The record is a 570-nucleotide part of an RNA from Methylopila turkensis, which matches "Bacterial large subunit ribosomal RNA" in Rfam.
[Rfam]
RNA sequence: GUCUUAAGAGCAUUCGGUGGAUGCCUUGGCGCUGAGAGGCGAUGAAGGACGUGGUACGCUGCGAUAAGCGUCGGGGAGCUGCGAACAGGCUUUGAUCCGACGAUUUCCGAAUGGGGAAACCCACCUCCGACGUUUCGUAGUCCGGCGGCGUGAAGAGCGAUCUUCGCGGCGUGGGAUUACGGUGCGUCGACACAGAGGUAUUUGGUCCUGAAUACAUAGGGAUCAAAGGCGAACCCGGGGAACUGAAACAUCUAAGUACCCGGAGGAAAGGACAUCAACAGAGACUCCGUUAGUAGUGGCGAGCGAACGCGGAUCAGGCCAACGCCUUCCAAAAUCUCAUCAGAACCGUCUGGAAAGUCGGGCAUUAAUGGGUGACAGCCCCGUAUGAGAAAAGCUUUUGGAAGGAUACGAGUAGGGCGGGACACGUGAAAUCCUGUCUGAACAUGGGGGGACCACCCUCCAAGCCUAAGUACUCCUCAGCGACCGAUAGCGAACAAGUACCGUGAGGGAAAGGUGAAAAGCACCCCGACAAGGGGAGUGAAACAGUUCCUGAAACCGGAUGCUUACAAA
Numbered sequence: 001g002u003c004u005u006a007a008g009a010g011c012a013u014u015c016g017g018u019g020g021a022u023g024c025c026u027u028g029g030c031g032c033u034g035a036g037a038g039g040c041g042a043u044g045a046a047g048g049a050c051g052u053g054g055u056a057c058g059c060u061g062c063g064a065u066a067a068g069c070g071u072c073g074g075g076g077a078g079c080u081g082c083g084a085a086c087a088g089g090c091u092u093u094g095a096u097c098c099g100a101c102g103a104u105u106u107c108c109g110a111a112u113g114g115g116g117a118a119a120c121c122c123a124c125c126u127c128c129g130a131c132g133u134u135u136c137g138u139a140g141u142c143c144g145g146c147g148g149c150g151u152g153a154a155g156a157g158c159g160a161u162c163u164u165c166g167c168g169g170c171g172u173g174g175g176a177u178u179a180c181g182g183u184g185c186g187u188c189g190a191c192a193c194a195g196a197g198g199u200a201u202u203u204g205g206u207c208c209u210g211a212a213u214a215c216a217u218a219g220g221g222a223u224c225a226a227a228g229g230c231g232a233a234c235c236c237g238g239g240g241a242a243c244u245g246a247a248a249c250a251u252c253u254a255a256g257u258a259c260c261c262g263g264a265g266g267a268a269a270g271g272a273c274a275u276c277a278a279c280a281g282a283g284a285c286u287c288c289g290u291u292a293g294u295a296g297u298g299g300c301g302a303g304c305g306a307a308c309g310c311g312g313a314u315c316a317g318g319c320c321a322a323c324g325c326c327u328u329c330c331a332a333a334a335u336c337u338c339a340u341c342a343g344a345a346c347c348g349u350c351u352g353g354a355a356a357g358u359c360g361g362g363c364a365u366u367a368a369u370g371g372g373u374g375a376c377a378g379c380c381c382c383g384u385a386u387g388a389g390a391a392a393a394g395c396u397u398u399u400g401g402a403a404g405g406a407u408a409c410g411a412g413u414a415g416g417g418c419g420g421g422a423c424a425c426g427u428g429a430a431a432u433c434c435u436g437u438c439u440g441a442a443c444a445u446g447g448g449g450g451g452a453c454c455a456c457c458c459u460c461c462a463a464g465c466c467u468a469a470g471u472a473c474u475c476c477u478c479a480g481c482g483a484c485c486g487a488u489a490g491c492g493a494a495c496a497a498g499u500a501c502c503g504u505g506a507g508g509g510a511a512a513g514g515u516g517a518a519a520a521g522c523a524c525c526c527c528g529a530c531a532a533g534g535g536g537a538g539u540g541a542a543a544c545a546g547u548u549c550c551u552g553a554a555a556c557c558g559g560a561u562g563c564u565u566a567c568a569a570a
Stems, first nucleotide, its partner, number of pairs: 008565010023550001024514002028485002030482007037474002039230002047108003050063003069102007078090003113122003123199005129193001201227009234265001235263005245252002275282002285470001286313005296304002316467004326404009336394002340388003346361003350357001370382003415439008446461005501508002524536004
Annotation: The match comes from Rfam's covariance-model search (2743 bits). Lineage of the source: Bacteria > Pseudomonadati > Alphaproteobacteria > Hyphomicrobiales > Methylopila.